Rfam assigns this 62-nucleotide RNA from Pipistrellus kuhlii to the family "Small nucleolar RNA SNORD75".
RNA sequence: AGCCUGUGAUGGUUUAAGAGUAGUGGACAGAAGGAAUUUCUGAAAAAUCCUAUUCUGAGGCU
Dot-bracket structure: ((((......................................................))))

Rfam links the family to the GO terms nucleolus and RNA processing. On this family, see Galardi et al., Mol Cell Biol 2002: "Purified box C/D snoRNPs are able to reproduce site-specific 2'-O-methylation of target RNA in vitro".